[Rfam]
Rfam assigns this 74-nucleotide sequence from Sulfolobales archaeon HS-7 to the family "tRNA". The family's consensus secondary structure is taken from published work.
Nucleotides: 074
Stems, first nucleotide, its partner, number of pairs: 001073007010026002013023001028044005050066005
Number, partner (000 for none) and nucleotide at each position: 001073g002072g003071g004070c005069c006068g007067g008000u009000a010026g011025c012000c013023c014000a015000g016000c017000u018000c019000g020000g021000a022000a023013g024000a025011g026010c027000g028044c029043u030042c031041g032040g033000u034000u035000c036000g037000c038000a039000c040032c041031c042030g043029a044028g045000a046000g047000g048000u049000c050066c051065c052064g053063g054062g055000u056000u057000c058000a059000a060000a061000u062054c063053c064052c065051g066050g067007c068006c069005g070004g071003u072002c073001c074000a